This 251-nucleotide RNA sequence from Hepatocystis sp. ex Piliocolobus tephrosceles belongs to the Rfam family "ACEA small nucleolar RNA U3".
RNA sequence: ACGACGAAUACUUAGUCAAGAUCAUUGCUAUAGUAUUUUGUAUGUUUAAAAGUUACAAAGUAACAGAUGAUGAAAAAGUGAUGAUGAACCGACUCAGCUCUAAAAUGAAUUUUUAUUUCGAUAGCAAACAUUAUCUUUUUAAGAUUUUGUUAACGGUAUCCGAAAAAAUACAUGAUAAUUUAUUUUAACUUUGACAGAUUUUUAAUCUUCAAAGUUAAAUAAAUAUAGAGCUUGUAGUCUGCUGAACUUUA
Numbered sequence: 001a002c003g004a005c006g007a008a009u010a011c012u013u014a015g016u017c018a019a020g021a022u023c024a025u026u027g028c029u030a031u032a033g034u035a036u037u038u039u040g041u042a043u044g045u046u047u048a049a050a051a052g053u054u055a056c057a058a059a060g061u062a063a064c065a066g067a068u069g070a071u072g073a074a075a076a077a078g079u080g081a082u083g084a085u086g087a088a089c090c091g092a093c094u095c096a097g098c099u100c101u102a103a104a105a106u107g108a109a110u111u112u113u114u115a116u117u118u119c120g121a122u123a124g125c126a127a128a129c130a131u132u133a134u135c136u137u138u139u140u141a142a143g144a145u146u147u148u149g150u151u152a153a154c155g156g157u158a159u160c161c162g163a164a165a166a167a168a169u170a171c172a173u174g175a176u177a178a179u180u181u182a183u184u185u186u187a188a189c190u191u192u193g194a195c196a197g198a199u200u201u202u203u204a205a206u207c208u209u210c211a212a213a214g215u216u217a218a219a220u221a222a223a224u225a226u227a228g229a230g231c232u233u234g235u236a237g238u239c240u241g242c243u244g245a246a247c248u249u250u251a
Stems, first nucleotide, its partner, number of pairs: 001041003007036001009035004018029001021026001046067001052064003075250005091239004095234001096232006104179001106177002114166001116164001120160004180222004185217001
The family has 28 seed sequences and 2,156 matches in Rfam 15.1. Small nucleolar RNAs (snoRNAs) are involved in the processing and modification of rRNA in the nucleolus. There are two main classes of snoRNAs: the box C/D class, and the box H/ACA class. Lineage of the source: Eukaryota > Alveolata > Haemosporida > Plasmodiidae > Hepatocystis. Its family is annotated with nucleolus and RNA processing in the Gene Ontology.